[Rfam]
RNA sequence: GAAGGAGAAACUCCUAUCCCUACCUCUUUGUGGUACCUACCCGGUUGUUUGGGUACGAGCAACCUUAGGGAAGAUCGGGUAACCAACCCCUGUGAGAACUUAACCCGUAUGCUGACAGGGAAGG
Numbered sequence: 001g002a003a004g005g006a007g008a009a010a011c012u013c014c015u016a017u018c019c020c021u022a023c024c025u026c027u028u029u030g031u032g033g034u035a036c037c038u039a040c041c042c043g044g045u046u047g048u049u050u051g052g053g054u055a056c057g058a059g060c061a062a063c064c065u066u067a068g069g070g071a072a073g074a075u076c077g078g079g080u081a082a083c084c085a086a087c088c089c090c091u092g093u094g095a096g097a098a099c100u101u102a103a104c105c106c107g108u109a110u111g112c113u114g115a116c117a118g119g120g121a122a123g124g
Base pairs, nucleotide, nucleotide: 013124014123015122017120018119019118022034023033024032046111047110048109050107051106052105053104054103